[Rfam]
Nucleotides: 141
Base pairs, nucleotide, nucleotide: 020052021051022050023049024048026047027046028045034042035041036040085117086116087115089112090111091110092109093108094107095106096105097104098103130141131140132139133138
Number, partner (000 for none) and nucleotide at each position: 001000a002000g003000c004000u005000u006000u007000g008000c009000g010000c011000a012000g013000u014000g015000g016000c017000g018000g019000u020052a021051c022050c023049a024048u025000a026047g027046c028045c029000a030000a031000u032000g033000a034042g035041g036040u037000u038000u039000u040036a041035c042034c043000g044000a045028g046027g047026c048024g049023u050022g051021g052020u053000u054000a055000u056000u057000g058000c059000u060000a061000g062000u063000u064000g065000a066000a067000a068000a069000c070000u071000a072000c073000u074000c075000c076000c077000a078000a079000u080000a081000c082000c083000c084000c085117g086116c087115a088000c089112g090111g091110g092109c093108u094107g095106g096105c097104c098103u099000u100000c101000a102000c103098a104097g105096g106095u107094u108093a109092g110091c111090u112089u113000a114000g115087u116086g117085c118000a119000a120000u121000u122000u123000u124000u125000u126000a127000c128000g129000g130141c131140u132139c133138u134000u135000a136000c137000g138133g139132g140131a141130g

About this RNA
The family of this 141-nucleotide sequence from Aplysia californica is "U4 spliceosomal RNA". The sequence is in the family's curated seed alignment. Rfam describes the family as follows. U4 small nuclear RNA (U4 snRNA) is a component of the major U2-dependent spliceosome. It is annotated as a spliceosomal small nuclear RNA. For this family Rfam cites "The uRNA database" (Zwieb, Nucleic Acids Res, 1997). NCBI's taxonomy places the organism under Eukaryota, Bilateria, Heterobranchia, Tectipleura, Aplysia.